Rfam assigns this 139-nucleotide RNA sequence from Frigoriglobus tundricola to the family "Group II catalytic intron D1-D4-4". Its family is annotated with Group II intron splicing in the Gene Ontology.
[Rfam]
RNA sequence: CCUCGGGUGGAAGUCACGACCGGCGAUCCUCGUCCCAGCCGGAAGCACUUAGGGCGGUCCAGGAGGUGACGAGUGGACUGAAGCACUCCCAGAAACGGCUUUUCUCGGAAGCCAGCAGGUCAUGCGGGCCGUAUGGAUG
Numbered sequence: 001c002c003u004c005g006g007g008u009g010g011a012a013g014u015c016a017c018g019a020c021c022g023g024c025g026a027u028c029c030u031c032g033u034c035c036c037a038g039c040c041g042g043a044a045g046c047a048c049u050u051a052g053g054g055c056g057g058u059c060c061a062g063g064a065g066g067u068g069a070c071g072a073g074u075g076g077a078c079u080g081a082a083g084c085a086c087u088c089c090c091a092g093a094a095a096c097g098g099c100u101u102u103u104c105u106c107g108g109a110a111g112c113c114a115g116c117a118g119g120u121c122a123u124g125c126g127g128g129c130c131g132u133a134u135g136g137a138u139g
Stems, first nucleotide, its partner, number of pairs: 020042005052087002055080006065070001097113006115132002
Description: On this family, see Bonen and Vogel, Trends Genet 2001: "The ins and outs of group II introns".